[Rfam]
RNA: Small nucleolar RNA U3
RNA sequence: AAGACUAUAUUUUCAGGAAUCAUUUCUGUAGUUCAUUACUACAGAAGUUUCUCUGACUGUGUAGAGUACCACGAGGAGGAGACAUAGCAUUCUCUCCUAGCGUGAAGUUAGCUCUUGGUGUUGCUUCGUUGCAACUGUCAUUUGCCAUUGAUGAUCGUGCUUUUCUCUUUUGGGAGAGUAGAGGGAAAGGAUGCAGUCUGAGUGGG
Numbered sequence: 001a002a003g004a005c006u007a008u009a010u011u012u013u014c015a016g017g018a019a020u021c022a023u024u025u026c027u028g029u030a031g032u033u034c035a036u037u038a039c040u041a042c043a044g045a046a047g048u049u050u051c052u053c054u055g056a057c058u059g060u061g062u063a064g065a066g067u068a069c070c071a072c073g074a075g076g077a078g079g080a081g082a083c084a085u086a087g088c089a090u091u092c093u094c095u096c097c098u099a100g101c102g103u104g105a106a107g108u109u110a111g112c113u114c115u116u117g118g119u120g121u122u123g124c125u126u127c128g129u130u131g132c133a134a135c136u137g138u139c140a141u142u143u144g145c146c147a148u149u150g151a152u153g154a155u156c157g158u159g160c161u162u163u164u165c166u167c168u169u170u171u172g173g174g175a176g177a178g179u180a181g182a183g184g185g186a187a188a189g190g191a192u193g194c195a196g197u198c199u200g201a202g203u204g205g206g
Base pairs, nucleotide, nucleotide: 002040003039006035009032010031011030014028015027016026017025018024049065050064054061069205070204071203072202087194088193089192090191091190092189093188095186096185097184098183100158101157102156111145112144116140117139118138119137120135121134122133123132124131160178161177162176163175164174165173166172